[Rfam]
RNA sequence: GGAAGGUCACAGGUCACACACCCUGGAAUCGGGCUCCCUCCUCUCUGGUCCUGGGUGCGUAACCCAAGAAUCACA
Numbered sequence: 001g002g003a004a005g006g007u008c009a010c011a012g013g014u015c016a017c018a019c020a021c022c023c024u025g026g027a028a029u030c031g032g033g034c035u036c037c038c039u040c041c042u043c044u045c046u047g048g049u050c051c052u053g054g055g056u057g058c059g060u061a062a063c064c065c066a067a068g069a070a071u072c073a074c075a
Base pairs, nucleotide, nucleotide: 002074005071007069008068012064013063014062016060017059019057020056021055022054023053025052026051028049029048030047031046032045033044
Dot-bracket structure: .(..(.((...(((.((.(((((.((.((((((..........)))))).))))))).)).)))...)).)..).
Source information
mir-9223 microRNA precursor family: a 75-nucleotide RNA sequence from Myotis myotis. The match comes from Rfam's covariance-model search (59 bits). The family's consensus secondary structure was predicted with RNAalifold.